[Rfam]
RNA sequence: GACAGUUUGGCCGAGUGGUCUAAGGCGCUGGCAUAAGGCGCCAGUCCGAAAGGGCGUGGGUUCGAACCCCACAGCUGUCA
Numbered sequence: 001g002a003c004a005g006u007u008u009g010g011c012c013g014a015g016u017g018g019u020c021u022a023a024g025g026c027g028c029u030g031g032c033a034u035a036a037g038g039c040g041c042c043a044g045u046c047c048g049a050a051a052g053g054g055c056g057u058g059g060g061u062u063c064g065a066a067c068c069c070c071a072c073a074g075c076u077g078u079c080a
Stems, first nucleotide, its partner, number of pairs: 001079007010026003028044005056072005
The family of this 80-nucleotide RNA from Perkinsus chesapeaki is "tRNA". Rfam's curators write: Transfer RNA (tRNA) molecules are approximately 80 nucleotides in length. By type it is a transfer RNA. The match comes from Rfam's covariance-model search (52 bits). Clan: tRNA clan.